[Rfam]
RNA sequence: AGUGCGUGGCCAUAGCAGAAGCACUUAUGGGGUGGCCUGUCAGAUUGCAAUGAAUCUAUGAAUUCUGCU
Numbered sequence: 001a002g003u004g005c006g007u008g009g010c011c012a013u014a015g016c017a018g019a020a021g022c023a024c025u026u027a028u029g030g031g032g033u034g035g036c037c038u039g040u041c042a043g044a045u046u047g048c049a050a051u052g053a054a055u056c057u058a059u060g061a062a063u064u065c066u067g068c069u
Base pairs, nucleotide, nucleotide: 008037009036010035011034014069015068016067017066018065019064020063021033022032042057043056044055045054046053

Notes: Shown here is a 69-nucleotide RNA from Crocodylus porosus, a member of the family "Mammalian CPEB3 ribozyme". The base pairs follow the family's consensus structure, which is taken from published work. A search with the family's covariance model found it, with a score of 38 bits.